[Rfam]
RNA sequence: UGAGCAUCAGUGUUGAGCAAUCCUAAUUCGUUAUCCUUGCACUUUGAUUGUUAGUGAAGAAACUUUUGGGGAAUUAUUACUGAGAUGCUC
Numbered sequence: 001u002g003a004g005c006a007u008c009a010g011u012g013u014u015g016a017g018c019a020a021u022c023c024u025a026a027u028u029c030g031u032u033a034u035c036c037u038u039g040c041a042c043u044u045u046g047a048u049u050g051u052u053a054g055u056g057a058a059g060a061a062a063c064u065u066u067u068g069g070g071g072a073a074u075u076a077u078u079a080c081u082g083a084g085a086u087g088c089u090c
Base pairs, nucleotide, nucleotide: 002090003089004088005087006086007085008084